[Rfam]
RNA sequence: AUCUCAUCCAGAGCAGGCGGAGGGACUGGCCCGAUGAAGCCCGGCAACCGGCACGUCCCUUGGCGUGCACGGUGCUAACUCCUGCGGAAGACGGGGACAGCCGUUUUCCGAGAGAUGAGAG
Numbered sequence: 001a002u003c004u005c006a007u008c009c010a011g012a013g014c015a016g017g018c019g020g021a022g023g024g025a026c027u028g029g030c031c032c033g034a035u036g037a038a039g040c041c042c043g044g045c046a047a048c049c050g051g052c053a054c055g056u057c058c059c060u061u062g063g064c065g066u067g068c069a070c071g072g073u074g075c076u077a078a079c080u081c082c083u084g085c086g087g088a089a090g091a092c093g094g095g096g097a098c099a100g101c102c103g104u105u106u107u108c109c110g111a112g113a114g115a116u117g118a119g120a121g
Stems, first nucleotide, its partner, number of pairs: 002120007013042001016041003022032003026084001028082002043076004048072002051068004080113001085110010

Rfam assigns this 121-nucleotide RNA sequence from Calditerricola satsumensis to the family "SAM riboswitch aptamer (S box leader)". On this family, see Baird et al., RNA 2012: "YbxF and YlxQ are bacterial homologs of L7Ae and bind K-turns but not K-loops". Rfam links the family to the GO term regulation of gene expression. The organism belongs to Calditerricola, within Bacteria. A search with the family's covariance model found it, with a score of 77 bits.